[Rfam]
RNA sequence: GGCGUUUUUCGCGGCAGCGGAGCUCGACCGCAAACUCAAGUGAUCGUCGACUACAUCGACGCCCACAAGACCGAUUACGGGGUCGAGCCGAUCUGCCGAGUCCUUGCUCAGGCCGGUGUGCAGAUCGCCCCG
Numbered sequence: 001g002g003c004g005u006u007u008u009u010c011g012c013g014g015c016a017g018c019g020g021a022g023c024u025c026g027a028c029c030g031c032a033a034a035c036u037c038a039a040g041u042g043a044u045c046g047u048c049g050a051c052u053a054c055a056u057c058g059a060c061g062c063c064c065a066c067a068a069g070a071c072c073g074a075u076u077a078c079g080g081g082g083u084c085g086a087g088c089c090g091a092u093c094u095g096c097c098g099a100g101u102c103c104u105u106g107c108u109c110a111g112g113c114c115g116g117u118g119u120g121c122a123g124a125u126c127g128c129c130c131c132g
Base pairs, nucleotide, nucleotide: 017031018030019029020028078132079131080130081129082128089127090126092124093123094122095121096120
ALIL pseudoknot: a 132-nucleotide RNA from Rhodococcus sp. CX. Gene Ontology term of the family: positive regulation of translational frameshifting. The organism belongs to Rhodococcus, within Bacteria. It is annotated as a cis-regulatory element. The base pairs follow the family's consensus structure, which is taken from published work.